RNA sequence: UGUCUCCUCUAUCUUCCUCCAAGAAAAUAGAUUCAAGCCCGCCAAACAGCGGGCUUUUUUUU
Numbered sequence: 001u002g003u004c005u006c007c008u009c010u011a012u013c014u015u016c017c018u019c020c021a022a023g024a025a026a027a028u029a030g031a032u033u034c035a036a037g038c039c040c041g042c043c044a045a046a047c048a049g050c051g052g053g054c055u056u057u058u059u060u061u062u
Stems, first nucleotide, its partner, number of pairs: 008031005013023002036055007
Rfam assigns this 62-nucleotide RNA from Massilia sp. Root335 to the family "Betaproteobacteria toxic small RNA".
The match comes from Rfam's covariance-model search (56 bits).
Overexpression in amino aid rich medium attenuates growth, suggesting role in repressing amino acid intake and metabolism.
The family has 51 seed sequences and 951 matches in Rfam 15.1.